[Rfam]
RNA sequence: CGCUUAUCCAGAGAGGCGGAGGGACCGGCCCUAUGAAGCCUCGGCAACCACCUACCAGCGCGGCGCACCACAUGUGCCCUAGCGCGGCGGGAAUGGUGCCAAAUCCGGCAGCGACGACUGGAAGAUGAGCG
Numbered sequence: 001c002g003c004u005u006a007u008c009c010a011g012a013g014a015g016g017c018g019g020a021g022g023g024a025c026c027g028g029c030c031c032u033a034u035g036a037a038g039c040c041u042c043g044g045c046a047a048c049c050a051c052c053u054a055c056c057a058g059c060g061c062g063g064c065g066c067a068c069c070a071c072a073u074g075u076g077c078c079c080u081a082g083c084g085c086g087g088c089g090g091g092a093a094u095g096g097u098g099c100c101a102a103a104u105c106c107g108g109c110a111g112c113g114a115c116g117a118c119u120g121g122a123a124g125a126u127g128a129g130c131g
Stems, first nucleotide, its partner, number of pairs: 001131008013042005021031003025108004043100004048096002051091003104123001109120003
Shown here is a 131-nucleotide sequence from Chloroflexia bacterium SDU3-3, a member of the family "SAM riboswitch aptamer (S box leader)". The match comes from Rfam's covariance-model search (83 bits). Rfam describes the family as follows. The SAM riboswitch is found upstream of a number of genes which code for proteins involved in methionine or cysteine biosynthesis in Gram-positive bacteria. Taxonomically the source falls in Chloroflexia (Bacteria, Bacillati, Chloroflexota). Rfam links the family to the GO term regulation of gene expression.